About this RNA:
Small nucleolar RNA Z112: a 184-nucleotide RNA from Cuscuta campestris. Its family is annotated with nucleolus and RNA processing in the Gene Ontology. The base pairs follow the family's consensus structure, which was predicted with PFOLD.
[Rfam]
RNA sequence: ACACCGAUGAGGAAGAAUUCCCAAAAAAAUAGAUAGGAAGUGCCGUAUGACACUCCAAACCGCGGCGGUGGUUCCCGGCGGCGUAUCCCCUUCCCCCGUAAAUUGUUUUGUACUCUUUUCGGUAUGUACGAUUCGCCGCCCUCCACUGCCGCUGUGCGUGAUUUGGAAAGGGUCUCUGAGGUUU
Numbered sequence: 001a002c003a004c005c006g007a008u009g010a011g012g013a014a015g016a017a018u019u020c021c022c023a024a025a026a027a028a029a030u031a032g033a034u035a036g037g038a039a040g041u042g043c044c045g046u047a048u049g050a051c052a053c054u055c056c057a058a059a060c061c062g063c064g065g066c067g068g069u070g071g072u073u074c075c076c077g078g079c080g081g082c083g084u085a086u087c088c089c090c091u092u093c094c095c096c097c098g099u100a101a102a103u104u105g106u107u108u109u110g111u112a113c114u115c116u117u118u119u120c121g122g123u124a125u126g127u128a129c130g131a132u133u134c135g136c137c138g139c140c141c142u143c144c145a146c147u148g149c150c151g152c153u154g155u156g157c158g159u160g161a162u163u164u165g166g167a168a169a170g171g172g173u174c175u176c177u178g179a180g181g182u183u184u
Stems, first nucleotide, its partner, number of pairs: 001184001003182003079138005085132003089126001091124001093122002098120001100118003105113002
The family is grouped with related families in Rfam's "SNORD49 clan". The family has 6 seed sequences and 427 matches in Rfam 15.1.